[Rfam]
RNA sequence: GAAUGUCUUCAGGGCGGGGUGAAAGUCCCCACCGGCGGUAUAGUCCGCGAGCGGCCUCGGCCGCAGAACCGGUUGGAUUCCGGUACCGACAGUUACAGUCUGGAUGAAAGAAGAUGUGU
Number, nucleotide and partner (000 for none) at each position: 001g000002a000003a117004u116005g115006u114007c113008u112009u111010c110011a000012g000013g000014g000015c000016g000017g029018g028019g027020u000021g000022a000023a000024a000025g000026u000027c019028c018029c017030c000031a099032c098033c088034g087035g048036c047037g046038g045039u000040a000041u000042a000043g086044u085045c038046c037047g036048c035049g000050a000051g064052c063053g062054g000055c000056c000057u000058c000059g000060g000061c000062c053063g052064c051065a000066g000067a000068a084069c083070c082071g081072g080073u000074u000075g000076g000077a000078u000079u000080c072081c071082g070083g069084u068085a044086c043087c034088g033089a000090c102091a101092g100093u000094u000095a000096c000097a000098g032099u031100c092101u091102g090103g000104a000105u000106g000107a000108a000109a000110g010111a009112a008113g007114a006115u005116g004117u003118g000119u000